[Rfam]
RNA: Repression of heat shock gene expression (ROSE) element
RNA sequence: CCGGGCGCCGACAGGGCCUGGCCCUGGGGCGCAUAGCGCGUGGCUCGGCGCCCCUCAUGUCCAACUUGCUUUCGAGGAGAUGGAAAUGAGCA
Numbered sequence: 001c002c003g004g005g006c007g008c009c010g011a012c013a014g015g016g017c018c019u020g021g022c023c024c025u026g027g028g029g030c031g032c033a034u035a036g037c038g039c040g041u042g043g044c045u046c047g048g049c050g051c052c053c054c055u056c057a058u059g060u061c062c063a064a065c066u067u068g069c070u071u072u073c074g075a076g077g078a079g080a081u082g083g084a085a086a087u088g089a090g091c092a
Stems, first nucleotide, its partner, number of pairs: 001021006008015002028052005035045003054090005061083003065079003069076002